Manganese Mn2+ riboswitch aptamer (yybP-ykoY): a 162-nucleotide RNA sequence from Alloalcanivorax marinus. Gene Ontology term of the family: manganese ion binding. This RNA was originally discovered in E. coli during a large scale screen and was named SraF. The family was later found to exist upstream of related families of protein genes in many bacteria, including the the yybP and ykoK genes in B. subtilis. The specific functions of these proteins are unknown, but this structured RNA element may be involved in their genetic regulation as a riboswitch. The pairing is the family consensus, mapped onto this sequence.
[Rfam]
RNA sequence: AUCGCCGUCUUGGGGGAGUAGUCGCCGGGCCACCCCGCCCUGACGGUCGUCAACAUAGUUGCGCCUCAAUGCGCAUGGCGGCCGUGUCCCGCGCGCGAAGCCGUUCGCGCCGCGGUAUCGACGAGACCUGAGGCAUUAUCCGUAUUCCGCGGGGGCGGGAUC
Numbered sequence: 001a002u003c004g005c006c007g008u009c010u011u012g013g014g015g016g017a018g019u020a021g022u023c024g025c026c027g028g029g030c031c032a033c034c035c036c037g038c039c040c041u042g043a044c045g046g047u048c049g050u051c052a053a054c055a056u057a058g059u060u061g062c063g064c065c066u067c068a069a070u071g072c073g074c075a076u077g078g079c080g081g082c083c084g085u086g087u088c089c090c091g092c093g094c095g096c097g098a099a100g101c102c103g104u105u106c107g108c109g110c111c112g113c114g115g116u117a118u119c120g121a122c123g124a125g126a127c128c129u130g131a132g133g134c135a136u137u138a139u140c141c142g143u144a145u146u147c148c149g150c151g152g153g154g155g156c157g158g159g160a161u162c
Base pairs, nucleotide, nucleotide: 027040028039043085044084045083046082047081048080049079050078051077052076060075061074062073063072064071086161087160088159089158090157091156092155